[Rfam]
Nucleotides: 092
Stems, first nucleotide, its partner, number of pairs: 001092001003090005
Number, partner (000 for none) and nucleotide at each position: 001092a002000a003090u004089g005088g006087a007086u008000c009000u010000a011000u012000g013000a014000u015000g016000u017000u018000a019000u020000u021000g022000a023000u024000a025000u026000a027000u028000c029000u030000g031000c032000g033000u034000u035000a036000u037000c038000u039000a040000u041000c042000u043000g044000c045000a046000a047000c048000u049000u050000c051000c052000u053000a054000a055000a056000a057000g058000g059000a060000a061000u062000u063000g064000a065000a066000g067000a068000a069000g070000a071000u072000g073000a074000u075000a076000a077000c078000a079000u080000a081000c082000u083000g084000a085000g086007a087006u088005c089004u090003a091000a092001u